[Rfam]
RNA sequence: GGGCUGGCUUUAGCUCGGCAGUUCCUUCAACAGUGCUUUGACAAUCUCUUUGUGGAAUCCAAGCUGUUCGAGACCUGCAGGCGCUCUCUAGCCCUUUA
Numbered sequence: 001g002g003g004c005u006g007g008c009u010u011u012a013g014c015u016c017g018g019c020a021g022u023u024c025c026u027u028c029a030a031c032a033g034u035g036c037u038u039u040g041a042c043a044a045u046c047u048c049u050u051u052g053u054g055g056a057a058u059c060c061a062a063g064c065u066g067u068u069c070g071a072g073a074c075c076u077g078c079a080g081g082c083g084c085u086c087u088c089u090a091g092c093c094c095u096u097u098a
Stems, first nucleotide, its partner, number of pairs: 002093006013082003018078004026072003030068001

The record is a 98-nucleotide RNA from Prolemur simus, which matches "Vault RNA" in Rfam. The base pairs follow the family's consensus structure, which is taken from published work. The organism belongs to Prolemur, within Eukaryota. It scores 67 bits against the family's covariance model.